[Rfam]
RNA sequence: GGGUCUUUAGCUCAGCUGGUUAGAGCACUCGGCUCAUAACCGAGUGGUCCGGGGUUCGAGUCCCCGAGGACCCA
Numbered sequence: 001g002g003g004u005c006u007u008u009a010g011c012u013c014a015g016c017u018g019g020u021u022a023g024a025g026c027a028c029u030c031g032g033c034u035c036a037u038a039a040c041c042g043a044g045u046g047g048u049c050c051g052g053g054g055u056u057c058g059a060g061u062c063c064c065c066g067a068g069g070a071c072c073c074a
Stems, first nucleotide, its partner, number of pairs: 001073007010026004028044005050066005
This 74-nucleotide RNA sequence from Sulfurovum lithotrophicum belongs to the Rfam family "tRNA". The family's RNA type in Rfam is transfer RNA. The organism belongs to Sulfurovum, within Bacteria.